[Rfam]
RNA sequence: UUUCUUGAAAACUAAAAACCUAUAUAUUAUAAUUAAGAUGCUAAAUUAAGCUAUGGCAAUAAAUCUUAUUAAAAAUAGAGGCAGUGGACCCGGGGGCAGUACUCGGCACCUCCACCAGAAUAAAGCAAUGUUUUUAUGGGGGUGAAAAAGUUUCGACACACCUAGUAAAAUAAUAAAUUUUGCUCGAUAUGAUUCCGUCGUUUUAGGCAAUGUUUAAAUAAAGUAUUGUUUAAAUGGGUCAAAAAGAAGAAAUGCAAACGAUAACGAGCUUUCUUCAGAUGUUGGUUUACCUAAGCUUGCAUUAGCAGCUUAAUAGACUAGCAUACUGAGCGGUUAAAUGGGCUUACCGAGCAACAGAAAAGCCCUAGU
Numbered sequence: 001u002u003u004c005u006u007g008a009a010a011a012c013u014a015a016a017a018a019c020c021u022a023u024a025u026a027u028u029a030u031a032a033u034u035a036a037g038a039u040g041c042u043a044a045a046u047u048a049a050g051c052u053a054u055g056g057c058a059a060u061a062a063a064u065c066u067u068a069u070u071a072a073a074a075a076u077a078g079a080g081g082c083a084g085u086g087g088a089c090c091c092g093g094g095g096g097c098a099g100u101a102c103u104c105g106g107c108a109c110c111u112c113c114a115c116c117a118g119a120a121u122a123a124a125g126c127a128a129u130g131u132u133u134u135u136a137u138g139g140g141g142g143u144g145a146a147a148a149a150g151u152u153u154c155g156a157c158a159c160a161c162c163u164a165g166u167a168a169a170a171u172a173a174u175a176a177a178u179u180u181u182g183c184u185c186g187a188u189a190u191g192a193u194u195c196c197g198u199c200g201u202u203u204u205a206g207g208c209a210a211u212g213u214u215u216a217a218a219u220a221a222a223g224u225a226u227u228g229u230u231u232a233a234a235u236g237g238g239u240c241a242a243a244a245a246g247a248a249g250a251a252a253u254g255c256a257a258a259c260g261a262u263a264a265c266g267a268g269c270u271u272u273c274u275u276c277a278g279a280u281g282u283u284g285g286u287u288u289a290c291c292u293a294a295g296c297u298u299g300c301a302u303u304a305g306c307a308g309c310u311u312a313a314u315a316g317a318c319u320a321g322c323a324u325a326c327u328g329a330g331c332g333g334u335u336a337a338a339u340g341g342g343c344u345u346a347c348c349g350a351g352c353a354a355c356a357g358a359a360a361a362g363c364c365c366u367a368g369u
Base pairs, nucleotide, nucleotide: 040051041050042049055184056183057182058181059180066176067175068174069173070172071171080162081161084159085158086157090106091105092104093103094102107144108143109142110141111140112139113138185200186199187198188197190241191240192239194238195237196236331349332348333347334346340366341365342364344362345361